[Rfam]
RNA sequence: AGUCACGUCUAUGACUGUGAGUGUGGCUAACUAAAAAUUAGUCACUGUUGCUGAUUGUUGGGAAGGUGUAGGUAUUCCCCUAUUUGGGGUUUUCCUGCAUGACGGGCAUCUUUAAAAAGGUGCCC
Numbered sequence: 001a002g003u004c005a006c007g008u009c010u011a012u013g014a015c016u017g018u019g020a021g022u023g024u025g026g027c028u029a030a031c032u033a034a035a036a037a038u039u040a041g042u043c044a045c046u047g048u049u050g051c052u053g054a055u056u057g058u059u060g061g062g063a064a065g066g067u068g069u070a071g072g073u074a075u076u077c078c079c080c081u082a083u084u085u086g087g088g089g090u091u092u093u094c095c096u097g098c099a100u101g102a103c104g105g106g107c108a109u110c111u112u113u114a115a116a117a118a119g120g121u122g123c124c125c
Stems, first nucleotide, its partner, number of pairs: 006066001008064001010062001012060004017055002020052003023045007067099006074092001077089003104125009

Shown here is a 125-nucleotide RNA from Brunnivagina elsteri, a member of the family "Nitrogen stress-induced RNA 9". The match comes from Rfam's covariance-model search (101 bits). Its family is annotated with heterocyst differentiation in the Gene Ontology. On this family, see Brenes-Alvarez et al., Front Microbiol 2016: "Identification of Conserved and Potentially Regulatory Small RNAs in Heterocystous Cyanobacteria". It is annotated as a small RNA.